[Rfam]
Nucleotides: 143
Stems, first nucleotide, its partner, number of pairs: 012128003019030002033123005042050002051109003059084006087103003
Number, partner (000 for none) and nucleotide at each position: 001000g002000a003000a004000a005000u006000u007000a008000a009000a010000a011000a012128g013127c014126u015000g016000a017000a018000u019030c020029c021000u022000c023000g024000a025000a026000a027000g028000a029020g030019g031000u032000a033123c034122g035121g036120a037119g038000g039000a040000a041000c042050c043049a044000a045000g046000a047000u048000u049043u050042g051109g052108g053107g054000u055000u056000a057000a058000u059084c060083c061082a062081u063080u064079c065000u066000u067000u068000a069000u070000u071000c072000u073000u074000u075000u076000a077000u078000u079064g080063a081062a082061u083060g084059g085000u086000a087103g088102g089101g090000a091000g092000g093000u094000c095000c096000u097000a098000u099000u100000g101089c102088c103087c104000g105000a106000g107053c108052c109051c110000g111000u112000c113000a114000g115000c116000u117000a118000a119037c120036u121035u122034c123033g124000g125000a126014a127013g128012c129000g130000c131000u132000a133000c134000u135000a136000u137000a138000g139000g140000a141000g142000g143000g